[Rfam]
RNA sequence: CCGCACGGAGGUCACCAUCCGCCAGCGAGUUUCGCCCGCGGAUGCAAUGAUG
Numbered sequence: 001c002c003g004c005a006c007g008g009a010g011g012u013c014a015c016c017a018u019c020c021g022c023c024a025g026c027g028a029g030u031u032u033c034g035c036c037c038g039c040g041g042a043u044g045c046a047a048u049g050a051u052g
Base pairs, nucleotide, nucleotide: 016044017043018042019041020040021039022038025035026034027033028032
RNA: ffh sRNA
Organism: Jiella flava